[Rfam]
RNA sequence: GACUUAUCAAGAGUGGCAGAGGGGACAGGCCCUGUGAAGCCCGACAACCUGCGCGCAACCCGCGUAAGGUGCCAAAUCCUGCGGGAAACCGGAAGAUAAGAG
Numbered sequence: 001g002a003c004u005u006a007u008c009a010a011g012a013g014u015g016g017c018a019g020a021g022g023g024g025a026c027a028g029g030c031c032c033u034g035u036g037a038a039g040c041c042c043g044a045c046a047a048c049c050u051g052c053g054c055g056c057a058a059c060c061c062g063c064g065u066a067a068g069g070u071g072c073c074a075a076a077u078c079c080u081g082c083g084g085g086a087a088a089c090c091g092g093a094a095g096a097u098a099a100g101a102g
Stems, first nucleotide, its partner, number of pairs: 003100006013042001015041003021032003026081004043073001045071002048069002051065004077094001082091003